[Rfam]
This 70-nucleotide sequence from Camelus dromedarius belongs to the Rfam family "Small nucleolar RNA U2-30". For this family Rfam cites "Guide RNAs with 5' Caps and Novel Box C/D snoRNA-like Domains for Modification of snRNAs in Metazoa" (Tycowski et al., Curr Biol, 2004). By type it is a C/D-box small nucleolar RNA. Taxonomically the source falls in Camelus (Eukaryota, Metazoa, Teleostomi, Amniota). The match comes from Rfam's covariance-model search (75 bits). The base pairs follow the family's consensus structure, which is taken from published work.
RNA sequence: GAGCAAUGUUGAAAAGGUUUUACCACUGACCUUUAUAACUAGGAAGGUCUCGACACCAGAUCUGAGCCCA
Numbered sequence: 001g002a003g004c005a006a007u008g009u010u011g012a013a014a015a016g017g018u019u020u021u022a023c024c025a026c027u028g029a030c031c032u033u034u035a036u037a038a039c040u041a042g043g044a045a046g047g048u049c050u051c052g053a054c055a056c057c058a059g060a061u062c063u064g065a066g067c068c069c070a
Stems, first nucleotide, its partner, number of pairs: 001069001003067002013034007